[Rfam]
RNA sequence: AUGUAUACGAAUUUUGUACCACCUGCUCUACCAGAACGCUAAAAACCAAUACGCAGGUUAAUGAUUUCCCUGGUGUUGGCGCAAUAUUCGCGCACCCCGGCCUCGGC
Numbered sequence: 001a002u003g004u005a006u007a008c009g010a011a012u013u014u015u016g017u018a019c020c021a022c023c024u025g026c027u028c029u030a031c032c033a034g035a036a037c038g039c040u041a042a043a044a045a046c047c048a049a050u051a052c053g054c055a056g057g058u059u060a061a062u063g064a065u066u067u068c069c070c071u072g073g074u075g076u077u078g079g080c081g082c083a084a085u086a087u088u089c090g091c092g093c094a095c096c097c098c099g100g101c102c103u104c105g106g107c
Stems, first nucleotide, its partner, number of pairs: 021058006072096003079093004

A member of the RNA family "ArcZ RNA" from Serratia fonticola, 107 nucleotides long. It is annotated as a small RNA. From the family's description: This RNA was discovered in E. coli during a large scale screen. Gene Ontology terms of the family: protein binding and regulation of translation. The base pairs follow the family's consensus structure, which was predicted with PFOLD.